The record is a 215-nucleotide RNA from Streptomyces coryli, which matches "Actinobacteria sRNA Ms_IGR-5" in Rfam.

[Rfam]
RNA sequence: ACACGAGAAGGGAGGUGGUUCGGCAGAUGAUUGAUUACCGGACGCGUGAGGUGACUGCGGGCUAGUCGUCCGCUGUUGCGCUUCGAGCGCCAACGCCGGACCGGGGUGCGAGCGGUGCACCCAGCCGGCCCAAUCCCAAGCAGUUGCCCGACCCGCGGCUCGCCGGUACGUCCGGCCGGCCCCCUCCUGGGGACCAGAGUCGCGGGUCGACUGCG
Numbered sequence: 001a002c003a004c005g006a007g008a009a010g011g012g013a014g015g016u017g018g019u020u021c022g023g024c025a026g027a028u029g030a031u032u033g034a035u036u037a038c039c040g041g042a043c044g045c046g047u048g049a050g051g052u053g054a055c056u057g058c059g060g061g062c063u064a065g066u067c068g069u070c071c072g073c074u075g076u077u078g079c080g081c082u083u084c085g086a087g088c089g090c091c092a093a094c095g096c097c098g099g100a101c102c103g104g105g106g107u108g109c110g111a112g113c114g115g116u117g118c119a120c121c122c123a124g125c126c127g128g129c130c131c132a133a134u135c136c137c138a139a140g141c142a143g144u145u146g147c148c149c150g151a152c153c154c155g156c157g158g159c160u161c162g163c164c165g166g167u168a169c170g171u172c173c174g175g176c177c178g179g180c181c182c183c184c185u186c187c188u189g190g191g192g193a194c195c196a197g198a199g200u201c202g203c204g205g206g207u208c209g210a211c212u213g214c215g
Stems, first nucleotide, its partner, number of pairs: 015058005060130004065125002068120002071117001073115005149209013162180006
The organism belongs to Streptomyces, within Bacteria. The match comes from Rfam's covariance-model search (82 bits).